[Rfam]
RNA sequence: GAAUUAAGUGAGUCGUGAAGGGUUUGAACCUGCAGCAGGUUCGAGUUGAGCGAAAGCGAAACAGCGUUGCGUAGCAACGACCCGAAGGGUGAGGCCAAAGGCCGAAUCAUCCUGCACGCCCCACCA
Numbered sequence: 001g002a003a004u005u006a007a008g009u010g011a012g013u014c015g016u017g018a019a020g021g022g023u024u025u026g027a028a029c030c031u032g033c034a035g036c037a038g039g040u041u042c043g044a045g046u047u048g049a050g051c052g053a054a055a056g057c058g059a060a061a062c063a064g065c066g067u068u069g070c071g072u073a074g075c076a077a078c079g080a081c082c083c084g085a086a087g088g089g090u091g092a093g094g095c096c097a098a099a100g101g102c103c104g105a106a107u108c109a110u111c112c113u114g115c116a117c118g119c120c121c122c123a124c125c126a
Stems, first nucleotide, its partner, number of pairs: 015117003019113003023109001033091002036088001040086004047058002065079006
RtT RNA: a 126-nucleotide sequence from Buttiauxella agrestis. The source organism's lineage runs through Bacteria, Enterobacterales, Enterobacteriaceae, Buttiauxella and Buttiauxella agrestis. Rfam describes the family as follows. This family represents a bacterial cis-regulatory element known as RtT RNA. The exact function of RtT is unknown although it is thought that it may be involved in changing the cellular response in relation to amino acid starvation. It scores 92 bits against the family's covariance model.